[Rfam]
RNA sequence: UUAACUAAAACUUGUAUGGAGUUGGAACGUUUGCCGCUAGAGACCGCUGUUCCAACUGCAUACAAAUUUGAGUUA
Number, nucleotide and partner (000 for none) at each position: 001u000002u000003a000004a000005c000006u000007a000008a069009a068010a067011c000012u065013u064014g063015u062016a061017u000018g059019g000020a057021g056022u055023u054024g053025g052026a051027a050028c049029g048030u000031u000032u000033g000034c000035c000036g000037c000038u000039a000040g000041a000042g000043a000044c000045c000046g000047c000048u029049g028050u027051u026052c025053c024054a023055a022056c021057u020058g000059c018060a000061u016062a015063c014064a013065a012066a000067u010068u009069u008070g000071a000072g000073u000074u000075a000
RNA: mir-2807 microRNA precursor family
Organism: Bombyx mori